[Rfam]
RNA sequence: GCACAACAACACAUAAUAUUUCGUAUAAUUCCGAGGAUUGGCUUGGAAGUCUCUACGAGGUCACCAUAAUGGCCUGGCUACGAUUAUAAAAGAAAUCGAC
Numbered sequence: 001g002c003a004c005a006a007c008a009a010c011a012c013a014u015a016a017u018a019u020u021u022c023g024u025a026u027a028a029u030u031c032c033g034a035g036g037a038u039u040g041g042c043u044u045g046g047a048a049g050u051c052u053c054u055a056c057g058a059g060g061u062c063a064c065c066a067u068a069a070u071g072g073c074c075u076g077g078c079u080a081c082g083a084u085u086a087u088a089a090a091a092g093a094a095a096u097c098g099a100c
Stems, first nucleotide, its partner, number of pairs: 021083005029048007058075006

The family of this 100-nucleotide RNA from Paenibacillus antarcticus is "Purine riboswitch aptamer". The source organism's lineage runs through Bacteria, Bacillati, Bacilli, Paenibacillaceae and Paenibacillus. Gene Ontology term of the family: purine nucleobase biosynthetic process.